[Rfam]
RNA sequence: UUGUUAUGCAGGUAUGUUUACGCUGUAUACUCGUGUUAUUGAACUAAUGUUUAAGCGAACUGUAAACUCACCAACCACGGAGUCAUCUUAAAUUAGAUGGUUUUUUUAUU
Numbered sequence: 001u002u003g004u005u006a007u008g009c010a011g012g013u014a015u016g017u018u019u020a021c022g023c024u025g026u027a028u029a030c031u032c033g034u035g036u037u038a039u040u041g042a043a044c045u046a047a048u049g050u051u052u053a054a055g056c057g058a059a060c061u062g063u064a065a066a067c068u069c070a071c072c073a074a075c076c077a078c079g080g081a082g083u084c085a086u087c088u089u090a091a092a093u094u095a096g097a098u099g100g101u102u103u104u105u106u107u108a109u110u
Base pairs, nucleotide, nucleotide: 007027008026009025010024011023012021013020014019031080032079033078034077035076039074040073041072042051043050044049055071057069058068083100084099085098086097087096088095
RNA: DUF3800-I RNA
Organism: Mycoplasmopsis anatis